[Rfam]
RNA sequence: GUGUCUGCUGCUGGAUCCGCUUGAUGGUGGCUCCCUUGGGGCCCACCACCAACCCGACCACGCGGUAGGGGAC
Numbered sequence: 001g002u003g004u005c006u007g008c009u010g011c012u013g014g015a016u017c018c019g020c021u022u023g024a025u026g027g028u029g030g031c032u033c034c035c036u037u038g039g040g041g042c043c044c045a046c047c048a049c050c051a052a053c054c055c056g057a058c059c060a061c062g063c064g065g066u067a068g069g070g071g072a073c
Stems, first nucleotide, its partner, number of pairs: 004069008012060003019053001021051001023049001025048004030043001032041003

Shown here is a 73-nucleotide RNA sequence from Varanus komodoensis, a member of the family "mir-1905 microRNA precursor family".
It scores 86 bits against the family's covariance model.
Taxonomically the source falls in Varanus (Eukaryota, Chordata, Craniata, Teleostomi).
Pairs were carried over by alignment from the consensus structure, which was predicted with RNAalifold.
Gene Ontology terms of the family: miRNA-mediated post-transcriptional gene silencing and RISC complex.